Rfam assigns this 225-nucleotide sequence from Dactylococcopsis salina to the family "HNH endonuclease-associated RNA and ORF (HEARO) RNA". The match comes from Rfam's covariance-model search (141 bits). By type it is a non-coding RNA gene. The family has 139 seed sequences and 952 matches in Rfam 15.1. The base pairs follow the family's consensus structure, which is taken from published work. For this family Rfam cites "Exceptional structured noncoding RNAs revealed by bacterial metagenome analysis" (Weinberg et al., Nature, 2009). The source organism's lineage runs through Bacteria, Cyanophyceae, Nodosilineales, Dactylococcopsis and Dactylococcopsis salina.

RNA sequence: GUCAAUAACCCACCGUUAAGCCUCUUGGGAGGCUAUAACGGGGGCUUGCAAAAGCUCACAAGUUGACCAGCCUAAGCCUCUAGAAGGCUACGUUUCUAAAGCUAUCAAACCCUUAAAUGCGUGCUAGUUUGAGGCUCUUUGGUUAACAAUUAAACAUCUGUAACUGGGUUAAGGAAGUGUUGUUAGCGUGACAAACUUUAGAAACAUUGGCGAAGCAUACUUCAC
Numbered sequence: 001g002u003c004a005a006u007a008a009c010c011c012a013c014c015g016u017u018a019a020g021c022c023u024c025u026u027g028g029g030a031g032g033c034u035a036u037a038a039c040g041g042g043g044g045c046u047u048g049c050a051a052a053a054g055c056u057c058a059c060a061a062g063u064u065g066a067c068c069a070g071c072c073u074a075a076g077c078c079u080c081u082a083g084a085a086g087g088c089u090a091c092g093u094u095u096c097u098a099a100a101g102c103u104a105u106c107a108a109a110c111c112c113u114u115a116a117a118u119g120c121g122u123g124c125u126a127g128u129u130u131g132a133g134g135c136u137c138u139u140u141g142g143u144u145a146a147c148a149a150u151u152a153a154a155c156a157u158c159u160g161u162a163a164c165u166g167g168g169u170u171a172a173g174g175a176a177g178u179g180u181u182g183u184u185a186g187c188g189u190g191a192c193a194a195a196c197u198u199u200a201g202a203a204a205c206a207u208u209g210g211c212g213a214a215g216c217a218u219a220c221u222u223c224a225c
Base pairs, nucleotide, nucleotide: 001067002066003065004064005063006062010044011043013041014040017037045054046053047052070211071210072209074207075089076088077087078086079085092205093204094203095202096201097200098199099198100197101196107140108139111134112133113132114131115130116129117128118127119221123216124215125214142187143186144185145184146183147182148181149180150179154178155177157175158174159173161171162170163169